[Rfam]
RNA: Plastid-psbA-2 3UTR RNA
Organism: Gossypium klotzschianum
RNA sequence: GUAAAGGAGCAAUAACCACUUUCUUAUUCUAGCAAGAAUGUUUGUAUUGCUCCUUUAUUUCG
Numbered sequence: 001g002u003a004a005a006g007g008a009g010c011a012a013u014a015a016c017c018a019c020u021u022u023c024u025u026a027u028u029c030u031a032g033c034a035a036g037a038a039u040g041u042u043u044g045u046a047u048u049g050c051u052c053c054u055u056u057a058u059u060u061c062g
Stems, first nucleotide, its partner, number of pairs: 001058014015042001017040002022037004